This 153-nucleotide RNA sequence from Bifidobacterium bohemicum belongs to the Rfam family "FMN riboswitch aptamer (RFN element)".
RNA sequence: GGCAAGUUUCAAGGAAGGUGAAAUCCCUUAUUGGCGGUAACGCGUGGAGCCGAGUUCAUAAUGGCUUCCGCACGAAGCCCGCUCGCCGCGCAAGUGGCUGAUUCGGUGCGAUUCCGAAGCCAACGGUAACAGUCCGGAUGAAAGAAACGAGGC
Numbered sequence: 001g002g003c004a005a006g007u008u009u010c011a012a013g014g015a016a017g018g019u020g021a022a023a024u025c026c027c028u029u030a031u032u033g034g035c036g037g038u039a040a041c042g043c044g045u046g047g048a049g050c051c052g053a054g055u056u057c058a059u060a061a062u063g064g065c066u067u068c069c070g071c072a073c074g075a076a077g078c079c080c081g082c083u084c085g086c087c088g089c090g091c092a093a094g095u096g097g098c099u100g101a102u103u104c105g106g107u108g109c110g111a112u113u114c115c116g117a118a119g120c121c122a123a124c125g126g127u128a129a130c131a132g133u134c135c136g137g138a139u140g141a142a143a144g145a146a147a148c149g150a151g152g153c
Stems, first nucleotide, its partner, number of pairs: 003151001006148005016028003030133002032122002034082004085098003102118005124136003

The source organism's lineage runs through Bacteria, Bacillati, Actinomycetota, Bifidobacteriales and Bifidobacterium bohemicum. The base pairs follow the family's consensus structure, which is taken from published work. It scores 77 bits against the family's covariance model.